[Rfam]
Plastid-psbN 5UTR RNA: a 61-nucleotide RNA from Vitis rotundifolia. The family's consensus secondary structure was predicted with LocARNA.
RNA sequence: UACAACACCCAUUAAAGAAGUAGUUCCCCAUCCACAAGCUACUUUAGUAUAUUUCGAAAUC
Numbered sequence: 001u002a003c004a005a006c007a008c009c010c011a012u013u014a015a016a017g018a019a020g021u022a023g024u025u026c027c028c029c030a031u032c033c034a035c036a037a038g039c040u041a042c043u044u045u046a047g048u049a050u051a052u053u054u055c056g057a058a059a060u061c
Stems, first nucleotide, its partner, number of pairs: 017045009
Record summary: The literature on the family includes a 2023 paper in Plant Commun by Richter et al., "Retrograde signaling in plants: A critical review focusing on the GUN pathway and beyond".